[Rfam]
RNA sequence: UCGUUCGUCAUUGGGGAGUAGCCGCCCUGCACCCUGCAGGGGCCCGCGUCAACACACUUGGCCUUCCGGCCAUGGCGCGGGCAGCUUCCAGGCUGGCAAGACCUUUGACCGCACGCCUCCGGACAGGGCCGGGGAUGCCGUGCGGUCUCUGGUUUUCCGCCGGCCCUUGGAGA
Numbered sequence: 001u002c003g004u005u006c007g008u009c010a011u012u013g014g015g016g017a018g019u020a021g022c023c024g025c026c027c028u029g030c031a032c033c034c035u036g037c038a039g040g041g042g043c044c045c046g047c048g049u050c051a052a053c054a055c056a057c058u059u060g061g062c063c064u065u066c067c068g069g070c071c072a073u074g075g076c077g078c079g080g081g082c083a084g085c086u087u088c089c090a091g092g093c094u095g096g097c098a099a100g101a102c103c104u105u106u107g108a109c110c111g112c113a114c115g116c117c118u119c120c121g122g123a124c125a126g127g128g129c130c131g132g133g134g135a136u137g138c139c140g141u142g143c144g145g146u147c148u149c150u151g152g153u154u155u156u157c158c159g160c161c162g163g164c165c166c167u168u169g170g171a172g173a
Base pairs, nucleotide, nucleotide: 026040027039028038042082043081044080045079046078047077048076049075050074051073059072060071061070062069063068085172086171087170088169
This 173-nucleotide RNA sequence from Piscinibacter aquaticus belongs to the Rfam family "Manganese Mn2+ riboswitch aptamer (yybP-ykoY)". From the family's description: This RNA was originally discovered in E. coli during a large scale screen and was named SraF. The family was later found to exist upstream of related families of protein genes in many bacteria, including the the yybP and ykoK genes in B. subtilis. The specific functions of these proteins are unknown, but this structured RNA element may be involved in their genetic regulation as a riboswitch. The match comes from Rfam's covariance-model search (100 bits). Its family is annotated with manganese ion binding in the Gene Ontology. Lineage of the source: Bacteria > Pseudomonadati > Pseudomonadota > Burkholderiales > Piscinibacter.